[Rfam]
RNA: Lysine riboswitch aptamer
RNA sequence: AUAUGAGGUAGAGGUCGCGAUUUUUAUUAAUCUUGUGGAGUGAAAGGACACGUCGAAGCAAGCCUAGGAACAAUCGCCGAAAUGUAUAGCAGCCUUUCUGUUGUAUGUUGGGACAUCACGCGAACAGCUGAUGGACUGUCUUGGCAGUAAUGCUAAGUUGCGCUAUGUUUUCG
Numbered sequence: 001a002u003a004u005g006a007g008g009u010a011g012a013g014g015u016c017g018c019g020a021u022u023u024u025u026a027u028u029a030a031u032c033u034u035g036u037g038g039a040g041u042g043a044a045a046g047g048a049c050a051c052g053u054c055g056a057a058g059c060a061a062g063c064c065u066a067g068g069a070a071c072a073a074u075c076g077c078c079g080a081a082a083u084g085u086a087u088a089g090c091a092g093c094c095u096u097u098c099u100g101u102u103g104u105a106u107g108u109u110g111g112g113a114c115a116u117c118a119c120g121c122g123a124a125c126a127g128c129u130g131a132u133g134g135a136c137u138g139u140c141u142u143g144g145c146a147g148u149a150a151u152g153c154u155a156a157g158u159u160g161c162g163c164u165a166u167g168u169u170u171u172c173g
Base pairs, nucleotide, nucleotide: 006168008166009165010164011163017077018076019075020074021073022072024070025069032062033061034060035059036058081109082108083107084106085105086104087103088102089101090100091099092098110137111136114133115132116131117130118129140157141156142155143154144153145152